[Rfam]
Nucleotides: 076
Base pairs, nucleotide, nucleotide: 017070018069019068020067021066022065024063025062028059029058030057031056032055034054035053036052037051
Number, partner (000 for none) and nucleotide at each position: 001000c002000c003000g004000g005000c006000c007000c008000c009000c010000g011000u012000g013000a014000g015000c016000u017070u018069c019068c020067c021066u022065u023000u024063g025062u026000c027000a028059u029058c030057c031056u032055a033000u034054g035053c036052c037051u038000g039000a040000g041000c042000g043000a044000u045000g046000c047000c048000u049000g050000g051037a052036g053035g054034c055032u056031g057030g058029g059028a060000c061000g062025g063024c064000g065022a066021a067020g068019g069018g070017a071000a072000g073000c074000c075000c076000a
Rfam assigns this 76-nucleotide RNA from Apteryx australis to the family "mir-204 microRNA precursor family".
The family's consensus secondary structure was predicted with RNAalifold.
On this family, see Murchison et al., Genome Res 2008: "Conservation of small RNA pathways in platypus".
NCBI's taxonomy places the organism under Eukaryota, Metazoa, Bilateria, Sarcopterygii, Apteryx.
Rfam links the family to the GO terms miRNA-mediated post-transcriptional gene silencing and RISC complex.